[Rfam]
RNA sequence: UUAACUCUAAUUUGCAUGGAGUUGGAAAGUUUGCCUACACUUGCCGCUAGGGGCGCUGUUCCCACUGCAUACAAAUAAAAGUUA
Numbered sequence: 001u002u003a004a005c006u007c008u009a010a011u012u013u014g015c016a017u018g019g020a021g022u023u024g025g026a027a028a029g030u031u032u033g034c035c036u037a038c039a040c041u042u043g044c045c046g047c048u049a050g051g052g053g054c055g056c057u058g059u060u061c062c063c064a065c066u067g068c069a070u071a072c073a074a075a076u077a078a079a080a081g082u083u084a
Base pairs, nucleotide, nucleotide: 008078010076011075012074013073014072016070018068020066021065022064024062025061026060027059029057034052035051036050040046
mir-2807 microRNA precursor family: an 84-nucleotide RNA from Bombyx mori. NCBI's taxonomy places the organism under Eukaryota, Pterygota, Panorpida, Glossata, Bombyx. Its family is annotated with miRNA-mediated post-transcriptional gene silencing and RISC complex in the Gene Ontology. On this family, see Liu et al., BMC Genomics 2010: "MicroRNAs of Bombyx mori identified by Solexa sequencing".